[Rfam]
RNA sequence: GGGUUAGUACUAUCAAGAGAGCUAUCCUUCGACAGUAUAAUUUUUGUACCACUGUCAUGGAGUUGCUCUCUUUGUGGGCAACCCC
Dot-bracket structure: ..............((((.(((..(((...(((.((..............)).)))..)))...))).)))).............
Numbered sequence: 001g002g003g004u005u006a007g008u009a010c011u012a013u014c015a016a017g018a019g020a021g022c023u024a025u026c027c028u029u030c031g032a033c034a035g036u037a038u039a040a041u042u043u044u045u046g047u048a049c050c051a052c053u054g055u056c057a058u059g060g061a062g063u064u065g066c067u068c069u070c071u072u073u074g075u076g077g078g079c080a081a082c083c084c085c
Stems, first nucleotide, its partner, number of pairs: 015072004020067003025061003031056003035052002
Source information
Rfam assigns this 85-nucleotide RNA sequence from Bemisia tabaci to the family "mir-46/mir-47/mir-281 microRNA precursor family". Lineage of the source: Eukaryota > Neoptera > Hemiptera > Aleyrodoidea > Bemisia. It scores 71 bits against the family's covariance model.